A member of the RNA family "MIR7504 microRNA precursor family" from Gossypium raimondii, 123 nucleotides long.
Lineage of the source: Eukaryota > Tracheophyta > eudicotyledons > Malvoideae > Gossypium.
Pairs were carried over by alignment from the consensus structure, which was predicted with RNAalifold.

RNA sequence: AAUAGGAUGAUGAAAAAUUAAAUUUUUUCUCCUAAUUUUUAGCUUUUUCCUCUUAAAAGAAUUCAAAUCUAACUAAAAAUACUAAAAAUCAGGAGGAAAAAUCUAAUUUAUUAUUUUUCUAUU
Numbered sequence: 001a002a003u004a005g006g007a008u009g010a011u012g013a014a015a016a017a018u019u020a021a022a023u024u025u026u027u028u029c030u031c032c033u034a035a036u037u038u039u040u041a042g043c044u045u046u047u048u049c050c051u052c053u054u055a056a057a058a059g060a061a062u063u064c065a066a067a068u069c070u071a072a073c074u075a076a077a078a079a080u081a082c083u084a085a086a087a088a089u090c091a092g093g094a095g096g097a098a099a100a101a102u103c104u105a106a107u108u109u110a111u112u113a114u115u116u117u118u119c120u121a122u123u
Base pairs, nucleotide, nucleotide: 001123002122003121004120005119006118007117009115010114011113012112013111015109016108017107018106019105020104022102023101024100025099026098027097029095030094031093032092033091035089036088037087038086039085041083042082045079046078047077048076